[Rfam]
RNA sequence: GGGGACCUUUGGGGCCCUAUAAUAUGCAAGACUUUUUGUCUUGCACGUACAACGGAAGACAGAAA
Numbered sequence: 001g002g003g004g005a006c007c008u009u010u011g012g013g014g015c016c017c018u019a020u021a022a023u024a025u026g027c028a029a030g031a032c033u034u035u036u037u038g039u040c041u042u043g044c045a046c047g048u049a050c051a052a053c054g055g056a057a058g059a060c061a062g063a064a065a
Base pairs, nucleotide, nucleotide: 001018002017003016004015006014007013008012025045026044027043028042029041030040031039
RNA: L2-Alphaproteobacteria ribosomal protein leader